[Rfam]
Nucleotides: 114
Stems, first nucleotide, its partner, number of pairs: 001114002004111002007108005013102004018097004037077004049063002
Number, partner (000 for none) and nucleotide at each position: 001114g002113u003000g004111g005110g006000c007108u008107a009106u010105g011104g012000u013102g014101a015100u016099a017000u018097g019096u020095g021094u022000c023000c024000a025000g026000u027000a028000a029000c030000a031000a032000u033000c034000g035000g036000g037077g038076g039075u040074a041000a042000g043000a044000u045000u046000g047000u048000g049063g050062g051000g052000u053000c054000u055000u056000u057000g058000u059000g060000u061000g062050c063049c064000a065000u066000c067000g068000c069000u070000g071000g072000u073000g074040u075039g076038c077037u078000c079000a080000c081000u082000a083000u084000u085000g086000c087000u088000c089000u090000u091000c092000c093000g094021g095020u096019g097018c098000c099016u100015g101014u102013c103000a104011u105010c106009g107008u108007a109000u110005c111004c112000a113002a114001c
Shown here is a 114-nucleotide RNA sequence from Neogobius melanostomus, a member of the family "Potassium channel RNA editing signal". About the family: This family represents a group of sequences related to the human potassium channel Kv1.1 hairpin element which directs the efficient modification of an adenosine to inosine by an adenosine deaminase acting on RNA (ADAR). Pairs were carried over by alignment from the consensus structure, which is taken from published work. For this family Rfam cites "Control of human potassium channel inactivation by editing of a small mRNA hairpin" (Bhalla et al., Nat Struct Mol Biol, 2004). It is annotated as a cis-regulatory element. The organism belongs to Neogobius, within Eukaryota.